A member of the RNA family "bZIP non canonical Hac1/Xbp1 intron" from Callorhinchus milii, 74 nucleotides long. The base pairs follow the family's consensus structure, which was predicted with RNAfold. The organism belongs to Callorhinchus, within Eukaryota. bZIP intron RNA is a non-canonical intron that was first reported in HAC1 gene in yeast and XBP1 gene in Metazoa. A reference for the family is Iracane et al. (2018), "Identification of an Exceptionally Long Intron in the HAC1 Gene of Candida parapsilosis", mSphere. A search with the family's covariance model found it, with a score of 53 bits.
[Rfam]
RNA sequence: UGGCGGCCGGGUCAGCUGAGUCAGCAGUACUCAGACUAUGUGUGCCUCUGCAGCAGGUGCAGGCCCAGCUGUCG
Numbered sequence: 001u002g003g004c005g006g007c008c009g010g011g012u013c014a015g016c017u018g019a020g021u022c023a024g025c026a027g028u029a030c031u032c033a034g035a036c037u038a039u040g041u042g043u044g045c046c047u048c049u050g051c052a053g054c055a056g057g058u059g060c061a062g063g064c065c066c067a068g069c070u071g072u073c074g
Stems, first nucleotide, its partner, number of pairs: 004074004009066005016034006043059005